[Rfam]
RNA sequence: GUCUGAGGUGAGCGUAUGUGCCCUUGGACUACAUCGUGGAAGCCAGCACCAUGCAGUCCAUGGGCAUAUACACUUACCCAAGG
Numbered sequence: 001g002u003c004u005g006a007g008g009u010g011a012g013c014g015u016a017u018g019u020g021c022c023c024u025u026g027g028a029c030u031a032c033a034u035c036g037u038g039g040a041a042g043c044c045a046g047c048a049c050c051a052u053g054c055a056g057u058c059c060a061u062g063g064g065c066a067u068a069u070a071c072a073c074u075u076a077c078c079c080a081a082g083g
Stems, first nucleotide, its partner, number of pairs: 015070009025060006032053003036049003
The family of this 83-nucleotide RNA sequence from Neogobius melanostomus is "mir-455 microRNA precursor family". The literature on the family includes a 2009 paper in BMC Genomics by Soares et al., "Parallel DNA pyrosequencing unveils new zebrafish microRNAs". A search with the family's covariance model found it, with a score of 99 bits. The organism belongs to Neogobius, within Eukaryota. Rfam links the family to the GO terms sensory perception of sound, male sex differentiation and RISC complex.